[Rfam]
RNA sequence: AAAAAAAAGGAGAAAUAAUUAUUUUCUUGUUCUAUCAAGAGGAUACUAUUGCUCCUUUCU
Numbered sequence: 001a002a003a004a005a006a007a008a009g010g011a012g013a014a015a016u017a018a019u020u021a022u023u024u025u026c027u028u029g030u031u032c033u034a035u036c037a038a039g040a041g042g043a044u045a046c047u048a049u050u051g052c053u054c055c056u057u058u059c060u
Stems, first nucleotide, its partner, number of pairs: 006058007014050004021044002024041006
This 60-nucleotide sequence from Nicotiana attenuata belongs to the Rfam family "Plastid-psbA-4 3UTR RNA". For this family Rfam cites "Retrograde signaling in plants: A critical review focusing on the GUN pathway and beyond" (Richter et al., Plant Commun, 2023). The family's consensus secondary structure was predicted with LocARNA. Plastid psbA-4 is a non-coding RNA (ncRNA) present in plastids. The match comes from Rfam's covariance-model search (67 bits). It is annotated as a cis-regulatory element.